[Rfam]
RNA sequence: AGCUUUCGACGAUGAUGGCGAUGCAAAUCACAUCAUCUUCAUACCUCCCUGUUGGACUUCGGCCGAGCUUUACGCUCGGCCUUUUUU
Dot-bracket structure: .......((.(((((((.............))))))).))....................((((((((.....))))))))......

Rfam assigns this 87-nucleotide RNA sequence from Thalassovita taeanensis to the family "Singlet oxygen resistance RNA X".
A reference for the family is Peng et al. (2016), "Regulation of a polyamine transporter by the conserved 3' UTR-derived sRNA SorX confers resistance to singlet oxygen and organic hydroperoxides in Rhodobacter sphaeroides", RNA Biol.
It is annotated as a small RNA.
The source organism's lineage runs through Bacteria, Pseudomonadati, Pseudomonadota, Roseobacteraceae and Thalassovita.
Rfam 15.1 lists 528 matches to the family in 356 species.